[Rfam]
The record is a 75-nucleotide sequence from Alligator sinensis, which matches "Mammalian CPEB3 ribozyme" in Rfam.
RNA sequence: AGCUGCCAUAAUGGCCAUAGCAGAAGCGCUCACGUCGCGGCCCUGUCAGAUUUUAACAGAUGCGCAAAUUGUGCU
Numbered sequence: 001a002g003c004u005g006c007c008a009u010a011a012u013g014g015c016c017a018u019a020g021c022a023g024a025a026g027c028g029c030u031c032a033c034g035u036c037g038c039g040g041c042c043c044u045g046u047c048a049g050a051u052u053u054u055a056a057c058a059g060a061u062g063c064g065c066a067a068a069u070u071g072u073g074c075u
Base pairs, nucleotide, nucleotide: 013042014041015040016039019075020074021073022072024070025069026038027037028036047064050061051060052059053058
NCBI's taxonomy places the organism under Eukaryota, Bilateria, Craniata, Amniota, Alligator.